Rfam assigns this 300-nucleotide RNA sequence from Loa loa to the family "Metazoan signal recognition particle RNA". Its family is annotated with SRP-dependent cotranslational protein targeting to membrane, signal sequence recognition and signal recognition particle, endoplasmic reticulum targeting in the Gene Ontology. Rfam 15.1 lists 383,523 matches to the family in 1,221 species. Rfam classes the family as a non-coding RNA gene. The base pairs follow the family's consensus structure, which is taken from published work.

RNA sequence: GCCGGGCGUUGUGGCGAGCGCUUGUAAUCCAAGUGACUGGGAGGCGUGUGGUGGCGGAUGGAGUGAGAGGAGGAGUCCUAAUUGAUGCUUGGCGGUGGCGACCGAGCGUCCAGACCAAGCGUGGCGUCGACAAGGUAUCAGGAUAGGAGUGUCAUUGAUACCUGGUUGUAUAAUGAGGGGCGUACGGCUCAGGGCCAAAAGGCAGCAGGCAAAAGUCCCCGCGUCAUGACAGUGGUCGGAUAGCGCUUGCGAGCUGUCGGCAUCAGUUAGCCUUGUCAAUACCUCCAGACCCACCACUUU
Numbered sequence: 001g002c003c004g005g006g007c008g009u010u011g012u013g014g015c016g017a018g019c020g021c022u023u024g025u026a027a028u029c030c031a032a033g034u035g036a037c038u039g040g041g042a043g044g045c046g047u048g049u050g051g052u053g054g055c056g057g058a059u060g061g062a063g064u065g066a067g068a069g070g071a072g073g074a075g076u077c078c079u080a081a082u083u084g085a086u087g088c089u090u091g092g093c094g095g096u097g098g099c100g101a102c103c104g105a106g107c108g109u110c111c112a113g114a115c116c117a118a119g120c121g122u123g124g125c126g127u128c129g130a131c132a133a134g135g136u137a138u139c140a141g142g143a144u145a146g147g148a149g150u151g152u153c154a155u156u157g158a159u160a161c162c163u164g165g166u167u168g169u170a171u172a173a174u175g176a177g178g179g180g181c182g183u184a185c186g187g188c189u190c191a192g193g194g195c196c197a198a199a200a201g202g203c204a205g206c207a208g209g210c211a212a213a214a215g216u217c218c219c220c221g222c223g224u225c226a227u228g229a230c231a232g233u234g235g236u237c238g239g240a241u242a243g244c245g246c247u248u249g250c251g252a253g254c255u256g257u258c259g260g261c262a263u264c265a266g267u268u269a270g271c272c273u274u275g276u277c278a279a280u281a282c283c284u285c286c287a288g289a290c291c292c293a294c295c296a297c298u299u300u
Base pairs, nucleotide, nucleotide: 001045002044003043004023005022006021007020008019009018010017028042029041030040048297049296050295051294052293053292054291059287060286061285062284063283067277068276070274071273072272073271078270079269080268081267082266083265084264085263086262087261088260089259092257093256094255095254096253103249104248105247106246107245108244109243110239111238113237114236115235116234117233119230120228121227122226123225124224125223126222127221128168129167130166131165133163134162135161136160137159138158139157140156141155142153143152144151145150169175170174177219178218179217180216181215187210188209189208194203195202196201